The family of this 63-nucleotide RNA is "DUF3800-IX RNA". Actinobacteria, Firmicutes (1 example), Nitrospirae, Proteobacteria, Verrucomicrobia (1 example). Rfam's curators put it in the seed alignment. The family's consensus secondary structure is taken from published work.

RNA sequence: GACCCGCUGCCCGAAUUGUCACCGUAUGGUGUGCGUGCCGAGAGCCUAGGGCGCGGGUCUUCU
Number, nucleotide and partner (000 for none) at each position: 001g059002a058003c057004c056005c055006g054007c053008u000009g052010c051011c050012c049013g000014a000015a000016u000017u035018g034019u033020c031021a030022c029023c028024g000025u000026a000027u000028g023029g022030u021031g020032u000033g019034c018035g017036u000037g046038c000039c044040g000041a000042g000043a000044g039045c000046c037047u000048a000049g012050g011051g010052c009053g007054c006055g005056g004057g003058u002059c001060u000061u000062c000063u000